[Rfam]
RNA sequence: CAUGCAAUAAGGCUUUUCAUUGGGCGGCUAGCGUGUUUCAACUGCAAGCUGCCUUUUGAAGGGCAUAGUUGCUAG
Number, nucleotide and partner (000 for none) at each position: 001c000002a000003u000004g072005c071006a070007a069008u068009a000010a066011g000012g064013c063014u062015u061016u000017u059018c058019a057020u000021u000022g000023g053024g052025c000026g000027g000028c048029u047030a000031g045032c044033g000034u000035g000036u000037u000038u000039c000040a000041a000042c000043u000044g032045c031046a000047a029048g028049c000050u000051g000052c024053c023054u000055u000056u000057u019058g018059a017060a000061g015062g014063g013064c012065a000066u010067a000068g008069u007070u006071g005072c004073u000074a000075g000